[Rfam]
RNA: Termite-leu RNA
RNA sequence: CGAAAGGGGGCGCGUAAACGCGCCCUUUCAUAGAUAAAUGCGGGGCUAAACCCCGCAUUUUCAAUCAAAAUCAAAG
Numbered sequence: 001c002g003a004a005a006g007g008g009g010g011c012g013c014g015u016a017a018a019c020g021c022g023c024c025c026u027u028u029c030a031u032a033g034a035u036a037a038a039u040g041c042g043g044g045g046c047u048a049a050a051c052c053c054c055g056c057a058u059u060u061u062c063a064a065u066c067a068a069a070a071u072c073a074a075a076g
Stems, first nucleotide, its partner, number of pairs: 006027009033062002036060007043052002